[Rfam]
RNA sequence: GUACUUACCUGGACAGGGUCUAUGAGCGAUCAAGAAGGUUCAUGGCCUGGGCUGGUGACCUUCAUUGCACUCUGAAGGGGUGCCAGCCUAUGAUCUCCUCAAUGUAGGAGAGUCAAUGUCAUAAUUUGUUGCUGUGGGGGCUUGCGUUCGCGCAGCCCCUGC
Numbered sequence: 001g002u003a004c005u006u007a008c009c010u011g012g013a014c015a016g017g018g019u020c021u022a023u024g025a026g027c028g029a030u031c032a033a034g035a036a037g038g039u040u041c042a043u044g045g046c047c048u049g050g051g052c053u054g055g056u057g058a059c060c061u062u063c064a065u066u067g068c069a070c071u072c073u074g075a076a077g078g079g080g081u082g083c084c085a086g087c088c089u090a091u092g093a094u095c096u097c098c099u100c101a102a103u104g105u106a107g108g109a110g111a112g113u114c115a116a117u118g119u120c121a122u123a124a125u126u127u128g129u130u131g132c133u134g135u136g137g138g139g140g141c142u143u144g145c146g147u148u149c150g151c152g153c154a155g156c157c158c159c160u161g162c
Stems, first nucleotide, its partner, number of pairs: 012120004016048005023042005049089003053086001055083003059079003062075002091115003094111003098107002135161005143154004

U1 spliceosomal RNA: a 162-nucleotide sequence from Malus baccata.
A reference for the family is Zwieb (1997), "The uRNA database", Nucleic Acids Res.
About the family: U1 is a small nuclear RNA (snRNA) component of the spliceosome (involved in pre-mRNA splicing).
Its Rfam clan is "U1 clan".
A search with the family's covariance model found it, with a score of 136 bits.
It is annotated as a spliceosomal small nuclear RNA.